[Rfam]
RNA sequence: GUAACUCUGAGGUGUGCGCGAACGGUCAGUCCCCUGAGCCGAUAUUCCAAAACUUAGAAUGUUACGAUUGUUAACCGGUGUGUAAGCCCAGCUUGUACUGGGAAACCUAAAAGUUAAAGCGUAUCGUUCACCUUGAACCUAGGGUUCAAGGGUUACAACCUGAAACGGCAUCUUGGAGCUCUA
Numbered sequence: 001g002u003a004a005c006u007c008u009g010a011g012g013u014g015u016g017c018g019c020g021a022a023c024g025g026u027c028a029g030u031c032c033c034c035u036g037a038g039c040c041g042a043u044a045u046u047c048c049a050a051a052a053c054u055u056a057g058a059a060u061g062u063u064a065c066g067a068u069u070g071u072u073a074a075c076c077g078g079u080g081u082g083u084a085a086g087c088c089c090a091g092c093u094u095g096u097a098c099u100g101g102g103a104a105a106c107c108u109a110a111a112a113g114u115u116a117a118a119g120c121g122u123a124u125c126g127u128u129c130a131c132c133u134u135g136a137a138c139c140u141a142g143g144g145u146u147c148a149a150g151g152g153u154u155a156c157a158a159c160c161u162g163a164a165a166c167g168g169c170a171u172c173u174u175g176g177a178g179c180u181c182u183a
Stems, first nucleotide, its partner, number of pairs: 003180001005178011017167002031152003035148006057129003061125001063123004068119001071117005082106002087102005